[Rfam]
RNA: ArcZ RNA
RNA sequence: GUGCAGCACUACUCUCCCGGCAUCGCUAUCCAUGAAUCAAACUAAUAGCCAGCGGCGCCCCGUUUUCCCUGGUGUUGGCGCAGACUUCGCGCACCCCGGCCUGGCC
Number, nucleotide and partner (000 for none) at each position: 001g000002u000003g000004c000005a000006g000007c000008a000009c000010u000011a000012c000013u000014c000015u000016c000017c000018c000019g000020g058021c057022a000023u055024c054025g053026c052027u051028a000029u000030c000031c000032a000033u000034g000035a000036a000037u000038c000039a000040a000041a000042c000043u000044a000045a000046u000047a000048g000049c000050c000051a027052g026053c025054g024055g023056c000057g021058c020059c000060c000061c000062g000063u000064u000065u000066u000067c000068c000069c000070u000071g095072g094073u093074g000075u000076u000077g000078g092079c091080g090081c089082a000083g000084a000085c000086u000087u000088c000089g081090c080091g079092c078093a073094c072095c071096c000097c000098g000099g000100c000101c000102u000103g000104g000105c000106c000